[Rfam]
RNA sequence: GCCGGGUCUAUCUCGACGGAGAGAAAAGCGGGAAGCCUUGCCCGCCUGACUUGGCAACCAAUUCAAGG
Numbered sequence: 001g002c003c004g005g006g007u008c009u010a011u012c013u014c015g016a017c018g019g020a021g022a023g024a025a026a027a028g029c030g031g032g033a034a035g036c037c038u039u040g041c042c043c044g045c046c047u048g049a050c051u052u053g054g055c056a057a058c059c060a061a062u063u064c065a066a067g068g
Stems, first nucleotide, its partner, number of pairs: 001055008011022004028045005036068005
This 68-nucleotide sequence from Aeromonas simiae belongs to the Rfam family "int-alpA RNA". About the family: Acidobacteria (1 example), Planctomycetes (1 example), Proteobacteria. A search with the family's covariance model found it, with a score of 63 bits. Pairs were carried over by alignment from the consensus structure, which is taken from published work. Taxonomically the source falls in Aeromonas (Bacteria, Pseudomonadati, Aeromonadales, Aeromonadaceae).